[Rfam]
RNA sequence: UUUUUAUACAGAGGCGCGGAGAGACAGGCUCGACGAACCGCCGGCAACCAUCUACUUUCUUAGAACGGUGCCAACUCCUGACCAUAUAAAAA
Numbered sequence: 001u002u003u004u005u006a007u008a009c010a011g012a013g014g015c016g017c018g019g020a021g022a023g024a025c026a027g028g029c030u031c032g033a034c035g036a037a038c039c040g041c042c043g044g045c046a047a048c049c050a051u052c053u054a055c056u057u058u059c060u061u062a063g064a065a066c067g068g069u070g071c072c073a074a075c076u077c078c079u080g081a082c083c084a085u086a087u088a089a090a091a092a
Base pairs, nucleotide, nucleotide: 001092002091003090004089005088006087007086008085013042014041015040016039021031022030023029025080026079027078028077043072044071045070046069048068049067051064052063053062054061076084